[Rfam]
RNA sequence: GGUCGGCGGUGCGAGGAAUACAACACCGCAAGGGAAUAACUCCGCUAGCUAAUAGAUCUAGUUUUGAGCCGCCGACCACCCGAUU
Numbered sequence: 001g002g003u004c005g006g007c008g009g010u011g012c013g014a015g016g017a018a019u020a021c022a023a024c025a026c027c028g029c030a031a032g033g034g035a036a037u038a039a040c041u042c043c044g045c046u047a048g049c050u051a052a053u054a055g056a057u058c059u060a061g062u063u064u065u066g067a068g069c070c071g072c073c074g075a076c077c078a079c080c081c082g083a084u085u
Base pairs, nucleotide, nucleotide: 001077002076003075004074005073006072007071008070009069013042014041015040017037026033027032044062045061046060047059048058
A member of the RNA family "sRNA-Xcc1" from Haemophilus influenzae, 85 nucleotides long. Rfam's curators put it in the seed alignment. For this family Rfam cites "HrpG, a key hrp regulatory protein of Xanthomonas campestris pv. vesicatoria is homologous to two-component response regulators" (Wengelnik et al., Mol Plant Microbe Interact, 1996). The family's consensus secondary structure was predicted with RNAalifold.